[Rfam]
RNA sequence: UCCUAUGAUGGCAUGAUAUCUUUGAGACCUGAGUUUAUUUUUCAAUAUUGAUGAAAAAUACAAGCAUUACUUCUGAGGAU
Dot-bracket structure: (((............................(((..........))..)...........................))).

The family of this 80-nucleotide RNA from Aquilegia coerulea is "Small nucleolar RNA R66". The source organism's lineage runs through Eukaryota, Tracheophyta, Euphyllophyta, Magnoliopsida and Aquilegia. From the family's description: snoR66 is a C/D box small nucleolar RNA, which acts as a methylation guide for 18S ribosomal RNA in plants. snoR66 has been alternatively named snoZ269 in rice. The family's consensus secondary structure was predicted with PFOLD. Rfam classes the family as a C/D-box small nucleolar RNA.